[Rfam]
RNA sequence: GGUCACGAGUGCCAGCGUAAAACCCCGGUUUGCUGGCCGGCAACCCUCCACCUGCGGUGGGGUGCCCCGGGUGAAGACCAGGCCCCGAGCCAACCAGCUCCGGGGGCAAGCGCGGGAC
Numbered sequence: 001g002g003u004c005a006c007g008a009g010u011g012c013c014a015g016c017g018u019a020a021a022a023c024c025c026c027g028g029u030u031u032g033c034u035g036g037c038c039g040g041c042a043a044c045c046c047u048c049c050a051c052c053u054g055c056g057g058u059g060g061g062g063u064g065c066c067c068c069g070g071g072u073g074a075a076g077a078c079c080a081g082g083c084c085c086c087g088a089g090c091c092a093a094c095c096a097g098c099u100c101c102g103g104g105g106g107c108a109a110g111c112g113c114g115g116g117a118c
Base pairs, nucleotide, nucleotide: 001079002078003077004076009038011037012036013035014034015033016032021030022029039066040065041064044062045061046060048057049056082107083106084105085104086103087100088099089098090097
Overview
The record is a 118-nucleotide RNA from Jonesia denitrificans, which matches "SAM (S-adenosyl methionine) riboswitch aptamer" in Rfam. The family's consensus secondary structure is taken from published work. From the family's description: SAM-IV is a mRNA element that regulates gene expression via direct sensing of S-adenosylmethionine (SAM or AdoMet).